[Rfam]
Rfam assigns this 69-nucleotide RNA from Neobacillus mesonae to the family "int-alpA RNA".
Taxonomically the source falls in Neobacillus (Bacteria, Bacillota, Bacilli, Bacillaceae).
It is annotated as a small RNA.
Acidobacteria (1 example), Planctomycetes (1 example), Proteobacteria.
RNA sequence: AGACUGGCUAGGUUUCGCGAACCGAAAAGCAUGACUCCUAAUGCCUGCCAAUUGUUUUUACAUAGGAGG
Numbered sequence: 001a002g003a004c005u006g007g008c009u010a011g012g013u014u015u016c017g018c019g020a021a022c023c024g025a026a027a028a029g030c031a032u033g034a035c036u037c038c039u040a041a042u043g044c045c046u047g048c049c050a051a052u053u054g055u056u057u058u059u060a061c062a063u064a065g066g067a068g069g
Base pairs, nucleotide, nucleotide: 002053003052005050006049007048008047011023012022013021014020029044030043031042032041035069036068038066039065